This 94-nucleotide RNA belongs to the Rfam family "S4-Clostridia ribosomal protein leader". Clan: Ribosomal Protein S4 Leader clan.

[Rfam]
RNA sequence: GAAAGGGUGUGUUGUCAUAUGACAUGCCUGGGCUGGGAUAUCGGUGUAUUUCAUCGGUAGGACAAAGCUUCAAGGGUCCGCAGCCUCAAUUAGG
Dot-bracket structure: ....((((((((((.....))))))))))((((((.............................................))))))........